[Rfam]
RNA sequence: CCUUGUCAGUGGGAUUCGGGUCUGAAAAACUCCGUUGUCAUCAGCUUCAUCUCCUUCAUAACCCACCGGAUCGGAGUUAAAUUAUAGCACUACAUUA
Numbered sequence: 001c002c003u004u005g006u007c008a009g010u011g012g013g014a015u016u017c018g019g020g021u022c023u024g025a026a027a028a029a030c031u032c033c034g035u036u037g038u039c040a041u042c043a044g045c046u047u048c049a050u051c052u053c054c055u056u057c058a059u060a061a062c063c064c065a066c067c068g069g070a071u072c073g074g075a076g077u078u079a080a081a082u083u084a085u086a087g088c089a090c091u092a093c094a095u096u097a
Stems, first nucleotide, its partner, number of pairs: 034088004043078006050070003
RNA: Small nucleolar RNA snoR97
Organism: Populus alba